[Rfam]
RNA sequence: AACAUGGGCUCCUGUCAUGAGUGGCACAUGUAGGACAGCUUGAUUGUUCUAUGUGCAGAAUCAACAUCAAAAGAUUUGGGAAGCGUAACUUUUGGUAUCUAGGCAGCUGUUGAUUGUUGAUCUUGUGCCUGU
Numbered sequence: 001a002a003c004a005u006g007g008g009c010u011c012c013u014g015u016c017a018u019g020a021g022u023g024g025c026a027c028a029u030g031u032a033g034g035a036c037a038g039c040u041u042g043a044u045u046g047u048u049c050u051a052u053g054u055g056c057a058g059a060a061u062c063a064a065c066a067u068c069a070a071a072a073g074a075u076u077u078g079g080g081a082a083g084c085g086u087a088a089c090u091u092u093u094g095g096u097a098u099c100u101a102g103g104c105a106g107c108u109g110u111u112g113a114u115u116g117u118u119g120a121u122c123u124u125g126u127g128c129c130u131g132u
Base pairs, nucleotide, nucleotide: 008084009083010082012080013026014025015024016023017022027055028054029053030052031051032050033049034048035047036046037045038044056079058077059076060075061074062073101130102129103128104127106126107125109123112122113121114120115119
RNA: U11 spliceosomal RNA
Organism: Phyllostomus discolor